[Rfam]
RNA: DUF3800-X RNA
RNA sequence: CUGCGAGUAAGGCCCGUCCGAGGCUGUGAUGCCUGCGGCUGCGGGAUGGGAGCAAUAGGACGGGGUUCGCAC
Number, nucleotide and partner (000 for none) at each position: 001c000002u071003g070004c069005g068006a067007g000008u000009a000010a000011g000012g000013c064014c063015c062016g061017u060018c059019c058020g000021a000022g000023g000024c000025u000026g000027u000028g000029a000030u000031g000032c045033c044034u043035g042036c041037g000038g000039c000040u000041g036042c035043g034044g033045g032046a000047u000048g000049g000050g000051a000052g000053c000054a000055a000056u000057a000058g019059g018060a017061c016062g015063g014064g013065g000066u000067u006068c005069g004070c003071a002072c000